The family of this 181-nucleotide RNA is "malK-I RNA". The family's consensus secondary structure is taken from published work.

[Rfam]
RNA sequence: UUCCAAUGGACAGCGUGACUCCACAGAAAACCACGCCGUUCCAUGACAAGAAGGAGGAAAACACCGUCAGCUCACGGUGCGGCAGCGUGGAGACCUGCCGUAAUGCGAUCACAUACACAGCGAUGUGCGCGAGAACAGUUCAGGCAUUGGACCGAUUGUUCAGAGCAAAAAUAACAUGGCA
Numbered sequence: 001u002u003c004c005a006a007u008g009g010a011c012a013g014c015g016u017g018a019c020u021c022c023a024c025a026g027a028a029a030a031c032c033a034c035g036c037c038g039u040u041c042c043a044u045g046a047c048a049a050g051a052a053g054g055a056g057g058a059a060a061a062c063a064c065c066g067u068c069a070g071c072u073c074a075c076g077g078u079g080c081g082g083c084a085g086c087g088u089g090g091a092g093a094c095c096u097g098c099c100g101u102a103a104u105g106c107g108a109u110c111a112c113a114u115a116c117a118c119a120g121c122g123a124u125g126u127g128c129g130c131g132a133g134a135a136c137a138g139u140u141c142a143g144g145c146a147u148u149g150g151a152c153c154g155a156u157u158g159u160u161c162a163g164a165g166c167a168a169a170a171a172u173a174a175c176a177u178g179g180c181a
Stems, first nucleotide, its partner, number of pairs: 009040003013036005064077004070166004078102008087094002105130003110127004133161008143153002
Dot-bracket structure: ........(((.(((((..............))))).))).......................((((..[[[[))))((((((((.((....))))))))))..(((..((((..........)))))))..((((((((..((.......)))))))))).]]]]...............

The sequence is in the family's curated seed alignment.